[Rfam]
RNA sequence: ACACGGAAAGGAGGUGGUUCGAAGAAUGUAUGUUCAUAGGACUUGUGAGGUGGCUGUCCGCUAGCGUUCUCGCAGCAGACGGAUAGCCGUCCGCGUGGGAACGCGGCGAAUUCCAGCAGUCACCCGGCCCCCGAGCCCCCGGUGUAAGUCCAACCGGGACCGCGAUUUUCGCGGUAAGGCUCGGGGGCUGCCUGCG
Numbered sequence: 001a002c003a004c005g006g007a008a009a010g011g012a013g014g015u016g017g018u019u020c021g022a023a024g025a026a027u028g029u030a031u032g033u034u035c036a037u038a039g040g041a042c043u044u045g046u047g048a049g050g051u052g053g054c055u056g057u058c059c060g061c062u063a064g065c066g067u068u069c070u071c072g073c074a075g076c077a078g079a080c081g082g083a084u085a086g087c088c089g090u091c092c093g094c095g096u097g098g099g100a101a102c103g104c105g106g107c108g109a110a111u112u113c114c115a116g117c118a119g120u121c122a123c124c125c126g127g128c129c130c131c132c133g134a135g136c137c138c139c140c141g142g143u144g145u146a147a148g149u150c151c152a153a154c155c156g157g158g159a160c161c162g163c164g165a166u167u168u169u170c171g172c173g174g175u176a177a178g179g180c181u182c183g184g185g186g187g188c189u190g191c192c193u194g195c196g
Stems, first nucleotide, its partner, number of pairs: 013058006059108004064104006071097003125190013138158006